[Rfam]
FMN riboswitch aptamer (RFN element): a 121-nucleotide RNA from Robinsoniella sp. RHS. The base pairs follow the family's consensus structure, which is taken from published work. Lineage of the source: Bacteria > Bacillota > Clostridia > Lachnospirales > Robinsoniella. The RFN element is a highly conserved domain that is found frequently in the 5'-untranslated regions of prokaryotic mRNAs that encode for flavin mononucleotide (FMN) biosynthesis and transport proteins. This element is a metabolite-dependent riboswitch that directly binds FMN in the absence of proteins.
RNA sequence: GAAAUUCUUCGGGGCAGGGUGUAAUUCCCUACCGGCGGUAUAGUCCGCGACCCACAGUAAAAGUGGCUGAAUUGGUGAGAUUCCAAUACCGACAGUAAAGUCUGGAUGAGAGAAGAAAAAU
Numbered sequence: 001g002a003a004a005u006u007c008u009u010c011g012g013g014g015c016a017g018g019g020u021g022u023a024a025u026u027c028c029c030u031a032c033c034g035g036c037g038g039u040a041u042a043g044u045c046c047g048c049g050a051c052c053c054a055c056a057g058u059a060a061a062a063g064u065g066g067c068u069g070a071a072u073u074g075g076u077g078a079g080a081u082u083c084c085a086a087u088a089c090c091g092a093c094a095g096u097a098a099a100g101u102c103u104g105g106a107u108g109a110g111a112g113a114a115g116a117a118a119a120a121u
Stems, first nucleotide, its partner, number of pairs: 005117006017029003031101002033091002035048004043089002052066002071087005093104003

Its family is annotated with FMN binding in the Gene Ontology.